RNA sequence: CUGGUCAUGUGUACCCAGUUUGCAUCUGUGUCUGAUAGCAGAGUCUGCCUGCAUCUUGCAUUCAGACCCUGUUAUCCACACAAACACCAUGCAGCCAAAGAGUAAGGUGGGGUCAUAGUACUGGCUUCGUGCUGUGUCUUUGAACAUACUCACCACAAGUCAGCCUCCAAAUCCCCACACACAG
Numbered sequence: 001c002u003g004g005u006c007a008u009g010u011g012u013a014c015c016c017a018g019u020u021u022g023c024a025u026c027u028g029u030g031u032c033u034g035a036u037a038g039c040a041g042a043g044u045c046u047g048c049c050u051g052c053a054u055c056u057u058g059c060a061u062u063c064a065g066a067c068c069c070u071g072u073u074a075u076c077c078a079c080a081c082a083a084a085c086a087c088c089a090u091g092c093a094g095c096c097a098a099a100g101a102g103u104a105a106g107g108u109g110g111g112g113u114c115a116u117a118g119u120a121c122u123g124g125c126u127u128c129g130u131g132c133u134g135u136g137u138c139u140u141u142g143a144a145c146a147u148a149c150u151c152a153c154c155a156c157a158a159g160u161c162a163g164c165c166u167c168c169a170a171a172u173c174c175c176c177a178c179a180c181a182c183a184g
Stems, first nucleotide, its partner, number of pairs: 014091001029082003033078002036074006043067005050060003108177005121163006129156003133148005

The family of this 184-nucleotide RNA sequence from Erinaceus europaeus is "Small nucleolar RNA SNORA23". From the family's description: The members of this family belong to the H/ACA class of snoRNAs which are thought to guide the sites of modification of uridines to pseudouridines. This family includes human snoRNA ACA23 (SNORA23) and mouse snoMBI-1. ACA23 is predicted to guide the pseudouridylation of residue U3737 and U4331 of 28S rRNA. Its family is annotated with RNA processing and nucleolus in the Gene Ontology. The base pairs follow the family's consensus structure, which was predicted with RNAalifold. The organism belongs to Erinaceus, within Eukaryota. The literature on the family includes a 2001 paper in EMBO J by Huttenhofer et al., "RNomics: an experimental approach that identifies 201 candidates for novel, small, non-messenger RNAs in mouse". A search with the family's covariance model found it, with a score of 148 bits.